[Rfam]
RNA sequence: CCGGCAAUGAUGAUCGGCGCAGGGGUACGGACCUCAGCUGAAUAAUGGGAGCUGAGUGUGGGUCUUUCUCUCUCAGUUUGCAUGUGGUGAGCUGUUUGGGAAGCAUCUACACGAGAAAGUCGCCUAGAUCUGAGCUGG
Numbered sequence: 001c002c003g004g005c006a007a008u009g010a011u012g013a014u015c016g017g018c019g020c021a022g023g024g025g026u027a028c029g030g031a032c033c034u035c036a037g038c039u040g041a042a043u044a045a046u047g048g049g050a051g052c053u054g055a056g057u058g059u060g061g062g063u064c065u066u067u068c069u070c071u072c073u074c075a076g077u078u079u080g081c082a083u084g085u086g087g088u089g090a091g092c093u094g095u096u097u098g099g100g101a102a103g104c105a106u107c108u109a110c111a112c113g114a115g116a117a118a119g120u121c122g123c124c125u126a127g128a129u130c131u132g133a134g135c136u137g138g
Base pairs, nucleotide, nucleotide: 001138002137003136004135005134
Rfam assigns this 138-nucleotide sequence from Chiloscyllium punctatum to the family "Small nucleolar RNA SNORD94". A search with the family's covariance model found it, with a score of 136 bits. For this family Rfam cites "Purified box C/D snoRNPs are able to reproduce site-specific 2'-O-methylation of target RNA in vitro" (Galardi et al., Mol Cell Biol, 2002). The organism belongs to Chiloscyllium, within Eukaryota. Its family is annotated with nucleolus and RNA processing in the Gene Ontology.